[Rfam]
RNA sequence: UAGCCGAUACAGGACUGGCGGAAAAUGUGGAUUACCACGAGGAACUGUAUUGUGAAUUGCCGACCGCCUGGGCGAGAUUG
Numbered sequence: 001u002a003g004c005c006g007a008u009a010c011a012g013g014a015c016u017g018g019c020g021g022a023a024a025a026u027g028u029g030g031a032u033u034a035c036c037a038c039g040a041g042g043a044a045c046u047g048u049a050u051u052g053u054g055a056a057u058u059g060c061c062g063a064c065c066g067c068c069u070g071g072g073c074g075a076g077a078u079u080g
Base pairs, nucleotide, nucleotide: 005052006051007050008049009048010047011046012045015042016041017068018067019066020065021064027038028037029036030035057075058074059073060072061071
Dot-bracket structure: ....((((((((..(([[[[[.....((((....))))..))..))))))))....(((((..]]]]]..))))).....

Rfam assigns this 80-nucleotide RNA from Propionispira arboris to the family "ZMP/ZTP riboswitch aptamer (pfl RNA motif)". The organism belongs to Propionispira, within Bacteria. It scores 63 bits against the family's covariance model.